[Rfam]
The record is a 122-nucleotide RNA from Vibrio eleionomae, which matches "Phenylalanine leader peptide" in Rfam.
The literature on the family includes a 2010 paper in Nucleic Acids Res by Gurvich et al., "Two groups of phenylalanine biosynthetic operon leader peptides genes: a high level of apparently incidental frameshifting in decoding Escherichia coli pheL".
Pairs were carried over by alignment from the consensus structure, which was predicted with CMfinder.
A search with the family's covariance model found it, with a score of 86 bits.
The family's RNA type in Rfam is cis-regulatory leader.
Its family is annotated with cellular amino acid metabolic process in the Gene Ontology.
RNA sequence: UAUGAAUCAUCGCCUGUUCUUUUUUGACUUCUUUUUUCUCCGCUAAUGCUCGGAGGCUGGUCGUUGGCAUAAAGAAAGUCAAAAGCGAACAGAAAGCCUCCCAAACGGGAGGCUUUUUUUAU
Numbered sequence: 001u002a003u004g005a006a007u008c009a010u011c012g013c014c015u016g017u018u019c020u021u022u023u024u025u026g027a028c029u030u031c032u033u034u035u036u037u038c039u040c041c042g043c044u045a046a047u048g049c050u051c052g053g054a055g056g057c058u059g060g061u062c063g064u065u066g067g068c069a070u071a072a073a074g075a076a077a078g079u080c081a082a083a084a085g086c087g088a089a090c091a092g093a094a095a096g097c098c099u100c101c102c103a104a105a106c107g108g109g110a111g112g113c114u115u116u117u118u119u120u121a122u
Stems, first nucleotide, its partner, number of pairs: 016090004021085010031074004036069001039054004055065003093116010